[Rfam]
A member of the RNA family "Group I catalytic intron" from Gloeothece citriformis, 258 nucleotides long. It scores 80 bits against the family's covariance model.
RNA sequence: CCUCCUGAAUCCAUCGGGCCUCAUAGAGGAAACUUUAUGAGUGAAUGUGGUCAAAUUCAAGGAAGCCUAAGUCUAUUAAGAGAUAAGGUAAUCUUGAGCCAAGCUCUAUUUCCCCGAUAGAGAAGGUGCAGAGACUGGUUGUAGGUGAAAAGGGGAACAUCAAAAACUUUAUUCAACCGUGCCUACAACAUAACGGCCACCACCUAAGGGUAAAUGCCUAGGGUGAAGGAAUAGUCCAGAGAGUGGGGAAACUCACAC
Numbered sequence: 001c002c003u004c005c006u007g008a009a010u011c012c013a014u015c016g017g018g019c020c021u022c023a024u025a026g027a028g029g030a031a032a033c034u035u036u037a038u039g040a041g042u043g044a045a046u047g048u049g050g051u052c053a054a055a056u057u058c059a060a061g062g063a064a065g066c067c068u069a070a071g072u073c074u075a076u077u078a079a080g081a082g083a084u085a086a087g088g089u090a091a092u093c094u095u096g097a098g099c100c101a102a103g104c105u106c107u108a109u110u111u112c113c114c115c116g117a118u119a120g121a122g123a124a125g126g127u128g129c130a131g132a133g134a135c136u137g138g139u140u141g142u143a144g145g146u147g148a149a150a151a152g153g154g155g156a157a158c159a160u161c162a163a164a165a166a167c168u169u170u171a172u173u174c175a176a177c178c179g180u181g182c183c184u185a186c187a188a189c190a191u192a193a194c195g196g197c198c199a200c201c202a203c204c205u206a207a208g209g210g211u212a213a214a215u216g217c218c219u220a221g222g223g224u225g226a227a228g229g230a231a232u233a234g235u236c237c238a239g240a241g242a243g244u245g246g247g248g249a250a251a252c253u254c255a256c257a258c
Stems, first nucleotide, its partner, number of pairs: 004018005025036003047200004052195001057097006066088003070084001098127002105120001131237001133236005203223003207219003243256005